[Rfam]
RNA sequence: CGUGCGACAGGAGAUGGCAUGCCUCCUCGAACCGCCCUCGUGGCUGAUGAUGCCUACCUUGUC
Number, nucleotide and partner (000 for none) at each position: 001c000002g000003u000004g000005c000006g000007a000008c000009a000010g026011g025012a024013g023014a000015u000016g054017g053018c052019a051020u050021g000022c000023c013024u012025c011026c010027u000028c000029g000030a000031a000032c000033c000034g044035c043036c042037c000038u000039c000040g000041u000042g036043g035044c034045u000046g000047a000048u000049g000050a020051u019052g018053c017054c016055u000056a000057c000058c000059u000060u000061g000062u000063c000